[Rfam]
RNA sequence: ACAACAAAAACAAGAACGCUGAACCCCCACAACAAAAACAACACGUACCGACUCCAUAACAACAAGAACAACAGGAUGGAGGCGCAGCAAACCGAUUCUUUUGGAGAGGAGUUGCCCGCAAGGGUUCUCCAUCGACCGGACCGAGAACGAUAAAACUGCCCCGAGGCAGCGCCAGUACCGGUUGAACCCGCGAGCGUGCGGCAAUAUCAGCGUCCAAAAGAAUAUGUUUGCUCUUGAGGUCCCGACCUGGGACUACCACCGGGCCACUGGCCCGGGCGGGCUGCCAAAAACAACAACAAGCCCGUCAGCACAACAAGAACAAAGCACGACCUACUCGAAAGGGGAGCCCACGGGCUCCCCUUUGUGCUGUCUGGGUUUCCCGUUCCUGCGCCC
Numbered sequence: 001a002c003a004a005c006a007a008a009a010a011c012a013a014g015a016a017c018g019c020u021g022a023a024c025c026c027c028c029a030c031a032a033c034a035a036a037a038a039c040a041a042c043a044c045g046u047a048c049c050g051a052c053u054c055c056a057u058a059a060c061a062a063c064a065a066g067a068a069c070a071a072c073a074g075g076a077u078g079g080a081g082g083c084g085c086a087g088c089a090a091a092c093c094g095a096u097u098c099u100u101u102u103g104g105a106g107a108g109g110a111g112u113u114g115c116c117c118g119c120a121a122g123g124g125u126u127c128u129c130c131a132u133c134g135a136c137c138g139g140a141c142c143g144a145g146a147a148c149g150a151u152a153a154a155a156c157u158g159c160c161c162c163g164a165g166g167c168a169g170c171g172c173c174a175g176u177a178c179c180g181g182u183u184g185a186a187c188c189c190g191c192g193a194g195c196g197u198g199c200g201g202c203a204a205u206a207u208c209a210g211c212g213u214c215c216a217a218a219a220g221a222a223u224a225u226g227u228u229u230g231c232u233c234u235u236g237a238g239g240u241c242c243c244g245a246c247c248u249g250g251g252a253c254u255a256c257c258a259c260c261g262g263g264c265c266a267c268u269g270g271c272c273c274g275g276g277c278g279g280g281c282u283g284c285c286a287a288a289a290a291c292a293a294c295a296a297c298a299a300g301c302c303c304g305u306c307a308g309c310a311c312a313a314c315a316a317g318a319a320c321a322a323a324g325c326a327c328g329a330c331c332u333a334c335u336c337g338a339a340a341g342g343g344g345a346g347c348c349c350a351c352g353g354g355c356u357c358c359c360c361u362u363u364g365u366g367c368u369g370u371c372u373g374g375g376u377u378u379c380c381c382g383u384u385c386c387u388g389c390g391c392c393c
Base pairs, nucleotide, nucleotide: 049084050083052081053080054079055078099219100218101217102216103215113212114211115210133184134183135182136181137180138179139178156169157168158167159166160165237254239253240252241251242250271375272374273373274372275371276370278303279302280301281300323368324367325366340361341360342359343358344357345356346355347354
RNA: Pseudomonas sRNA CrcZ
Organism: Pseudomonas oryzae